The record is a 502-nucleotide RNA from Kitasatospora sp. MMS16-BH015, which matches "Saccharopolyspora sRNA 350" in Rfam. Gene Ontology term of the family: regulation of secondary metabolite biosynthetic process. A search with the family's covariance model found it, with a score of 68 bits. Taxonomically the source falls in Kitasatospora (Bacteria, Bacillati, Actinomycetota, Streptomycetaceae).
[Rfam]
RNA sequence: CGGGUGGUCUCCUUCCAGAGGCUGUCCGGCGCGGGGUGGUGGCCGAAGUGGUCGCCGUCGGAGAGCGUGCCGAGCACCGUCAACUCCCCGUACUGGCCGACCCCGAGGCGCUGCACCCGGCCGUGCGCGAUCAGGAAGAUCCGGUCCACCGGGGUGCCCGCGCGGGCGAUCACCGCACCGGUCUCGUACUCCACCUGGUCGAACAGCCCGGCCAGUUCGUCGAGCAGCGCACCGUCGGGGUAGUCGCGCAGCACGCCGAGCCCGCGCAGGCCCUGCGGGAUCACCCGCACCUGCGAACCGGUCUUCACGAAGCCGAUCCGGUCGUCGCCGUCGUCGUAGGACACCUUGCGGUUGACGCGGUAGGUACCACCCGAGAUCUGCACCCACGGCAGCAUCUUCACCAGCCAGCGGGCGGUGAUGCCCUGCAUCUGCGGCGGGGUCUUGGUGGUGGUCGCCAGGGUGCGGGCGGCGGCGGUGCUCAGGCUCUGACGGACGGCCGCCG
Numbered sequence: 001c002g003g004g005u006g007g008u009c010u011c012c013u014u015c016c017a018g019a020g021g022c023u024g025u026c027c028g029g030c031g032c033g034g035g036g037u038g039g040u041g042g043c044c045g046a047a048g049u050g051g052u053c054g055c056c057g058u059c060g061g062a063g064a065g066c067g068u069g070c071c072g073a074g075c076a077c078c079g080u081c082a083a084c085u086c087c088c089c090g091u092a093c094u095g096g097c098c099g100a101c102c103c104c105g106a107g108g109c110g111c112u113g114c115a116c117c118c119g120g121c122c123g124u125g126c127g128c129g130a131u132c133a134g135g136a137a138g139a140u141c142c143g144g145u146c147c148a149c150c151g152g153g154g155u156g157c158c159c160g161c162g163c164g165g166g167c168g169a170u171c172a173c174c175g176c177a178c179c180g181g182u183c184u185c186g187u188a189c190u191c192c193a194c195c196u197g198g199u200c201g202a203a204c205a206g207c208c209c210g211g212c213c214a215g216u217u218c219g220u221c222g223a224g225c226a227g228c229g230c231a232c233c234g235u236c237g238g239g240g241u242a243g244u245c246g247c248g249c250a251g252c253a254c255g256c257c258g259a260g261c262c263c264g265c266g267c268a269g270g271c272c273c274u275g276c277g278g279g280a281u282c283a284c285c286c287g288c289a290c291c292u293g294c295g296a297a298c299c300g301g302u303c304u305u306c307a308c309g310a311a312g313c314c315g316a317u318c319c320g321g322u323c324g325u326c327g328c329c330g331u332c333g334u335c336g337u338a339g340g341a342c343a344c345c346u347u348g349c350g351g352u353u354g355a356c357g358c359g360g361u362a363g364g365u366a367c368c369a370c371c372c373g374a375g376a377u378c379u380g381c382a383c384c385c386a387c388g389g390c391a392g393c394a395u396c397u398u399c400a401c402c403a404g405c406c407a408g409c410g411g412g413c414g415g416u417g418a419u420g421c422c423c424u425g426c427a428u429c430u431g432c433g434g435c436g437g438g439g440u441c442u443u444g445g446u447g448g449u450g451g452u453c454g455c456c457a458g459g460g461u462g463c464g465g466g467c468g469g470c471g472g473c474g475g476u477g478c479u480c481a482g483g484c485u486c487u488g489a490c491g492g493a494c495g496g497c498c499g500c501c502g
Base pairs, nucleotide, nucleotide: 003384004381005380006379007378010376011375015321018318022315023312025310026309033306034305035304036303043301044300045299049226052223053222054221056219057218059105060104061103069097071096073094074093076091077090079088110216111215112214113213116211117210120207121206123204124203125200128197129196134191137190138189144185148182149181150180151179152178154176155172156171159168160167161166228295229294230293231292236287237286238285239284244278245277246276247275248273251271252270254266255265256264323336324335326333345373348370350368351367355365356364385425386424388422389421390420391419393417394416395415397412398411399410431470432469434467438463441459442458443457444456445455446454471501472500474498475497476496479493480492482490